The record is a 295-nucleotide RNA sequence from Magnaporthiopsis poae, which matches "Group I catalytic intron" in Rfam.
The organism belongs to Magnaporthiopsis poae, within Eukaryota.

[Rfam]
RNA sequence: UAAGCAGUCUUUAUGGCCAGCUGGUAGGCGGACAAGCCUACCAUAAACCAUCAAAUUGACGGGAAAGCCCUAAAGCUAUCUCAACCAAACAAGAGUGGUAACACAUUUUGUGGCACAGUUAAUGACUCGUGGUAAGGUAAAAUAGAGAUAGAUGUACGAAAGGAAAUGGGCAAUCCGCAGCCAAGUACCUGUUAAUUAUUAUUAAUAAUGAGGUAUGCAGUUCAUCGACUAGAUGUUGGUUGACGUUAUUUUCAGAGCGUUUAAGAUAUAGUCAAGCCUCACCCGAAAGGGUGCA
Numbered sequence: 001u002a003a004g005c006a007g008u009c010u011u012u013a014u015g016g017c018c019a020g021c022u023g024g025u026a027g028g029c030g031g032a033c034a035a036g037c038c039u040a041c042c043a044u045a046a047a048c049c050a051u052c053a054a055a056u057u058g059a060c061g062g063g064a065a066a067g068c069c070c071u072a073a074a075g076c077u078a079u080c081u082c083a084a085c086c087a088a089a090c091a092a093g094a095g096u097g098g099u100a101a102c103a104c105a106u107u108u109u110g111u112g113g114c115a116c117a118g119u120u121a122a123u124g125a126c127u128c129g130u131g132g133u134a135a136g137g138u139a140a141a142a143u144a145g146a147g148a149u150a151g152a153u154g155u156a157c158g159a160a161a162g163g164a165a166a167u168g169g170g171c172a173a174u175c176c177g178c179a180g181c182c183a184a185g186u187a188c189c190u191g192u193u194a195a196u197u198a199u200u201a202u203u204a205a206u207a208a209u210g211a212g213g214u215a216u217g218c219a220g221u222u223c224a225u226c227g228a229c230u231a232g233a234u235g236u237u238g239g240u241u242g243a244c245g246u247u248a249u250u251u252u253c254a255g256a257g258c259g260u261u262u263a264a265g266a267u268a269u270a271g272u273c274a275a276g277c278c279u280c281a282c283c284c285g286a287a288a289g290g291g292u293g294c295a
Base pairs, nucleotide, nucleotide: 046241047240048239049238050237052235053234057179058178060177061176062175063174068170069169070168180221181220185216186215187214188213195209196208197207198206225274227273228272229271230270231269243260244259245258246257247256249254280293281292282291283290284289

Annotation: Group I catalytic introns are large self-splicing ribozymes. They catalyse their own excision from mRNA, tRNA and rRNA precursors in a wide range of organisms. The core secondary structure consists of 9 paired regions (P1-P9). These fold to essentially two domains - the P4-P6 domain (formed from the stacking of P5, P4, P6 and P6a helices) and the P3-P9 domain (formed from the P8, P3, P7 and P9 helices). The secondary structure mark-up for this family represents only this conserved core. Group I catalytic introns often have long ORFs inserted in loop regions. The window size for this search is chosen to minimise search time and catch the small examples. A larger window size will find more matches. On this family, see Cech, Annu Rev Biochem 1990: "Self-splicing of group I introns". A search with the family's covariance model found it, with a score of 100 bits.